This 354-nucleotide part of an RNA from Atribacter laminatus belongs to the Rfam family "Bacterial small subunit ribosomal RNA". Its Rfam clan is "SSU clan". The family's consensus secondary structure is taken from published work.
[Rfam]
RNA sequence: GGCGUAAAGAGCUCGUAGGCGGCCGAUCAGGUCUCGCGUAAAAUCCCCCGGCUCAACCGGGGAGGGUCGCGGGAAACCGGCCGGCUUGAGGACAGAAAAGGAAAGUGGAAUUCCCGGUGUAGCGGUGAAAUGCGUAGAUAUCGGGAGGAACACCAGUGGUGAAGACGGCUUUCUGGUCUGUUGCUGACGCUGAGGAGCGAAAGCCAGGGGAGCGAACCGGAUUAGAUACCCGGGUAGUCCUGGCCGUAAACGAUGGAUACUAGGUGUGGGAGGUUCGACCCCUUCCGUGCCGCAGCUAACGCAUUAAGUAUCCCGCCUGGGGAGUACGGCCGCAAGGUUGAAACUCAAAGGAAU
Number, nucleotide and partner (000 for none) at each position: 001g317002g316003c315004g000005u000006a000007a000008a000009g314010a000011g198012c197013u196014c195015g000016u192017a000018g191019g190020c189021g000022g085023c084024c083025g082026a000027u080028c079029a000030g078031g077032u074033c073034u072035c071036g070037c069038g068039u000040a000041a000042a000043a000044u000045c000046c062047c061048c060049c059050g058051g057052c000053u000054c000055a000056a000057c051058c050059g049060g048061g047062g046063a000064g000065g000066g000067u000068c038069g037070c036071g035072g034073g033074a032075a000076a000077c031078c030079g028080g027081c000082c025083g024084g023085c022086u000087u000088g000089a185090g184091g000092a181093c180094a179095g178096a177097a000098a000099a000100g174101g173102a172103a171104a170105g169106u168107g151108g000109a000110a000111u147112u146113c145114c144115c143116g142117g141118u140119g000120u000121a000122g133123c132124g131125g000126u000127g000128a000129a000130a000131u124132g123133c122134g000135u000136a000137g000138a000139u000140a118141u117142c116143g115144g114145g113146a112147g111148g000149a000150a000151c107152a000153c000154c000155a000156g000157u000158g000159g166160u165161g000162a000163a000164g000165a160166c159167g000168g106169c105170u104171u103172u102173c101174u100175g000176g000177u096178c095179u094180g093181u092182u000183g000184c090185u089186g000187a000188c000189g020190c019191u018192g016193a000194g000195g014196a013197g012198c011199g000200a000201a000202a000203g244204c243205c242206a241207g240208g239209g000210g000211a000212g238213c237214g000215a000216a000217c233218c232219g231220g230221a000222u000223u000224a000225g000226a000227u000228a000229c000230c220231c219232g218233g217234g000235u000236a000237g213238u212239c208240c207241u206242g205243g204244c203245c000246g000247u000248a000249a000250a000251c000252g000253a000254u000255g313256g312257a311258u310259a309260c308261u000262a000263g291264g290265u289266g288267u287268g286269g285270g284271a283272g282273g281274u000275u000276c000277g000278a000279c000280c000281c273282c272283u271284u270285c269286c268287g267288u266289g265290c264291c263292g000293c000294a000295g302296c301297u000298a000299a000300c000301g296302c295303a000304u000305u000306a000307a000308g260309u259310a258311u257312c256313c255314c009315g003316c002317c001318u000319g346320g345321g344322g000323a000324g000325u000326a000327c000328g339329g338330c337331c336332g000333c000334a000335a000336g331337g330338u329339u328340g000341a000342a000343a000344c321345u320346c319347a000348a000349a000350g000351g000352a000353a000354u000
The family has 99 seed sequences and 42,628 matches in Rfam 15.1. NCBI's taxonomy places the organism under Bacteria, Pseudomonadati, Atribacterota, Atribacteraceae, Atribacter.